[Rfam]
RNA sequence: AGCGCCACCGGGUCGACGGCGCGGGUGGUCAGCAGGUAGUCGCGGAUCGCGAUGCCGUGCCGGCCCUC
Numbered sequence: 001a002g003c004g005c006c007a008c009c010g011g012g013u014c015g016a017c018g019g020c021g022c023g024g025g026u027g028g029u030c031a032g033c034a035g036g037u038a039g040u041c042g043c044g045g046a047u048c049g050c051g052a053u054g055c056c057g058u059g060c061c062g063g064c065c066c067u068c
Stems, first nucleotide, its partner, number of pairs: 005062001008059001011030003016026002035056004040052005
Description: A member of the RNA family "ASdes TB sRNA" from Catenulispora acidiphila, 68 nucleotides long. NCBI's taxonomy places the organism under Bacteria, Actinomycetota, Actinomycetes, Catenulispora, Catenulispora acidiphila. A reference for the family is Arnvig and Young (2009), "Identification of small RNAs in Mycobacterium tuberculosis", Mol Microbiol. By type it is a small RNA. Rfam 15.1 lists 1,192 matches to the family in 825 species. The family's consensus secondary structure is taken from published work.